A member of the RNA family "Small nucleolar RNA SNORA32" from Microcebus murinus, 121 nucleotides long. It is annotated as an H/ACA-box small nucleolar RNA.
RNA sequence: UCGUCAUUAGCAAGGCCUUUAGCAUGCCGUUUCUCAUUUGCUAGGGACAUGACCAUAAAAAAACUUCCCGCUAGGUUUUCUAUCUGCUACUUUGCUAGCAAUCAGCCUAUUGAGAACAUUU
Numbered sequence: 001u002c003g004u005c006a007u008u009a010g011c012a013a014g015g016c017c018u019u020u021a022g023c024a025u026g027c028c029g030u031u032u033c034u035c036a037u038u039u040g041c042u043a044g045g046g047a048c049a050u051g052a053c054c055a056u057a058a059a060a061a062a063a064c065u066u067c068c069c070g071c072u073a074g075g076u077u078u079u080c081u082a083u084c085u086g087c088u089a090c091u092u093u094g095c096u097a098g099c100a101a102u103c104a105g106c107c108u109a110u111u112g113a114g115a116a117c118a119u120u121u
Stems, first nucleotide, its partner, number of pairs: 003053005011045001026041002029038001067114001069112002074107004085100003
Rfam links the family to the GO terms RNA processing and nucleolus. About the family: ACA32 is a member of the H/ACA class of snoRNA that guide the sites of modification of uridines to pseudouridines.